Shown here is a 145-nucleotide RNA sequence from Pipistrellus kuhlii, a member of the family "Small nucleolar RNA SNORA48". Gene Ontology terms of the family: nucleolus and RNA processing. Rfam classes the family as an H/ACA-box small nucleolar RNA. Lineage of the source: Eukaryota > Bilateria > Sarcopterygii > Boreoeutheria > Pipistrellus. From the family's description: The snoRNA ACA 48 has been identified to guide pseudouridylation of the residue U3797 in the 28S rRNA subunit. A reference for the family is Ofengand and Bakin (1997), "Mapping to nucleotide resolution of pseudouridine residues in large subunit ribosomal RNAs from representative eukaryotes, prokaryotes, archaebacteria, mitochondria and chloroplasts", J Mol Biol. The match comes from Rfam's covariance-model search (50 bits).
[Rfam]
RNA sequence: ACCCCCUGGCAAUAGGCAAGAAGACAUCUGAUUGGUGGUGUUGCUCUUAUAUCAAUUAGGGGCAAAGCAGAUAUACAGUCCUUUGUUCAUCCUAGCUUGAUGCUUGUAUGGGUGGCCAGAGUUGUUUCAUGCCCGAAGGACAUUA
Numbered sequence: 001a002c003c004c005c006c007u008g009g010c011a012a013u014a015g016g017c018a019a020g021a022a023g024a025c026a027u028c029u030g031a032u033u034g035g036u037g038g039u040g041u042u043g044c045u046c047u048u049a050u051a052u053c054a055a056u057u058a059g060g061g062g063c064a065a066a067g068c069a070g071a072u073a074u075a076c077a078g079u080c081c082u083u084u085g086u087u088c089a090u091c092c093u094a095g096c097u098u099g100a101u102g103c104u105u106g107u108a109u110g111g112g113u114g115g116c117c118a119g120a121g122u123u124g125u126u127u128c129a130u131g132c133c134c135g136a137a138g139g140a141c142a143u144u145a
Base pairs, nucleotide, nucleotide: 003062004061005060006059007058008057013054015052019048020047023042024041025040026039027038028037084142085141086140087139088138099133101131105129106128108125109124110123113120